[Rfam]
RNA sequence: GCCACAUGAUGAGAUAUAUAGAUGCAGCAGCCUUCGGGCCGUGAUGACCUGCUAUCUAUCACCCUUCUCUGAUGGUU
Number, nucleotide and partner (000 for none) at each position: 001g076002c075003c074004a073005c000006a000007u000008g000009a000010u000011g000012a000013g000014a000015u000016a000017u000018a000019u000020a000021g000022a000023u000024g000025c000026a000027g000028c000029a000030g039031c038032c037033u000034u000035c000036g000037g032038g031039c030040c000041g000042u000043g000044a000045u000046g000047a000048c000049c000050u000051g000052c000053u000054a000055u000056c000057u000058a000059u000060c000061a000062c000063c000064c000065u000066u000067c000068u000069c000070u000071g000072a000073u004074g003075g002076u001077u000

Shown here is a 77-nucleotide sequence from Perca fluviatilis, a member of the family "Small nucleolar RNA SNORD83".
The family's RNA type in Rfam is C/D-box small nucleolar RNA.
The family's consensus secondary structure was predicted with PFOLD.
The source organism's lineage runs through Eukaryota, Eumetazoa, Teleostei, Euacanthomorphacea and Perca.